[Rfam]
Shown here is a 600-nucleotide part of an RNA from Porphyromonas endodontalis, a member of the family "Bacterial small subunit ribosomal RNA". The base pairs follow the family's consensus structure, which is taken from published work. NCBI's taxonomy places the organism under Bacteria, Pseudomonadati, Bacteroidia, Bacteroidales, Porphyromonas endodontalis. The match comes from Rfam's covariance-model search (1497 bits).

RNA sequence: UGACGGGGGCCCGCACAAGCGGAGGAACAUGUGGUUUAAUUCGAUGAUACGCGAGGAACCUUACCCGGGAUUGAAAUUUAGAUGAUGGCAGAUGAGAGUUUGCUUUCCUUCGGGACAUCUAAGUAGGUGCUGCAUGGUUGUCGUCAGCUCGUGCCGUGAGGUGUCGGCUUAAGUGCCAUAACGAGCGCAACCCGCGUCGAUAGUUACUAACAGGUUAUGCUGAGGACUCUAUCGAGACAGCCGUCGUAAGACGCGAGGAAGGGGCGGAUGACGUCAAAUCAGCACGGCCCUUACAUCCGGGGCGACACACGUGUUACAAUGGCAGGGACAAAGGGAAGCGACAUGGUGACAUGAAGCGGAUCUCCAAACCCUGUCCCAGUUCGGAUCGGAGUCUGCAACUCGACUCCGUGAAGCUGGAUUCGCUAGUAAUCGCGCAUCAGCCAUGGCGCGGUGAAUACGUUCCCGGGCCUUGUACACACCGCCCGUCAAGCCAUGGAAGUUGGGAGUACCUGAAGAGCGUAACCGCAAGGGGCGCUUAAGGGUAAUACCAGUGACUGGGGCUAAGUCGUAACAAGGUAGCCGUACCGGAAGGUGCGGCUG
Numbered sequence: 001u002g003a004c005g006g007g008g009g010c011c012c013g014c015a016c017a018a019g020c021g022g023a024g025g026a027a028c029a030u031g032u033g034g035u036u037u038a039a040u041u042c043g044a045u046g047a048u049a050c051g052c053g054a055g056g057a058a059c060c061u062u063a064c065c066c067g068g069g070a071u072u073g074a075a076a077u078u079u080a081g082a083u084g085a086u087g088g089c090a091g092a093u094g095a096g097a098g099u100u101u102g103c104u105u106u107c108c109u110u111c112g113g114g115a116c117a118u119c120u121a122a123g124u125a126g127g128u129g130c131u132g133c134a135u136g137g138u139u140g141u142c143g144u145c146a147g148c149u150c151g152u153g154c155c156g157u158g159a160g161g162u163g164u165c166g167g168c169u170u171a172a173g174u175g176c177c178a179u180a181a182c183g184a185g186c187g188c189a190a191c192c193c194g195c196g197u198c199g200a201u202a203g204u205u206a207c208u209a210a211c212a213g214g215u216u217a218u219g220c221u222g223a224g225g226a227c228u229c230u231a232u233c234g235a236g237a238c239a240g241c242c243g244u245c246g247u248a249a250g251a252c253g254c255g256a257g258g259a260a261g262g263g264g265c266g267g268a269u270g271a272c273g274u275c276a277a278a279u280c281a282g283c284a285c286g287g288c289c290c291u292u293a294c295a296u297c298c299g300g301g302g303c304g305a306c307a308c309a310c311g312u313g314u315u316a317c318a319a320u321g322g323c324a325g326g327g328a329c330a331a332a333g334g335g336a337a338g339c340g341a342c343a344u345g346g347u348g349a350c351a352u353g354a355a356g357c358g359g360a361u362c363u364c365c366a367a368a369c370c371c372u373g374u375c376c377c378a379g380u381u382c383g384g385a386u387c388g389g390a391g392u393c394u395g396c397a398a399c400u401c402g403a404c405u406c407c408g409u410g411a412a413g414c415u416g417g418a419u420u421c422g423c424u425a426g427u428a429a430u431c432g433c434g435c436a437u438c439a440g441c442c443a444u445g446g447c448g449c450g451g452u453g454a455a456u457a458c459g460u461u462c463c464c465g466g467g468c469c470u471u472g473u474a475c476a477c478a479c480c481g482c483c484c485g486u487c488a489a490g491c492c493a494u495g496g497a498a499g500u501u502g503g504g505a506g507u508a509c510c511u512g513a514a515g516a517g518c519g520u521a522a523c524c525g526c527a528a529g530g531g532g533c534g535c536u537u538a539a540g541g542g543u544a545a546u547a548c549c550a551g552u553g554a555c556u557g558g559g560g561c562u563a564a565g566u567c568g569u570a571a572c573a574a575g576g577u578a579g580c581c582g583u584a585c586c587g588g589a590a591g592g593u594g595c596g597g598c599u600g
Base pairs, nucleotide, nucleotide: 001476002475003473004472005471007470008469009468010467011466012465013464015460016459019423020422021421022420023419024317026315027314028313029312030311031310032309033308034306035305040055041054042053043052064301065300066299067298068297069296076124077123078122080120081119082118083117084116087104088103089102090101091100092099093098106115107114108113126290127289129288130287131286132285135284136283137279138278139277140275142273143272147186148185149184150183151182152181153162154161155160166177167176168175192267193266194265195264197235198234199233200232201231202230203229207224208223211222212221213220238258241255242253243252244251245250321375322374323373324372325371326370327369333364334363335362338357339356343352344351345350382413387408388407389406390405391404392403393402429452430451431450432449433448434447435446479575481572484568485567489562490561491560492559494557495556496555499552500551501550502549503548505546507544508543509542510541515537516536517535518534519533520532523530524529577600578599579598580597581596582595583594584593585592586591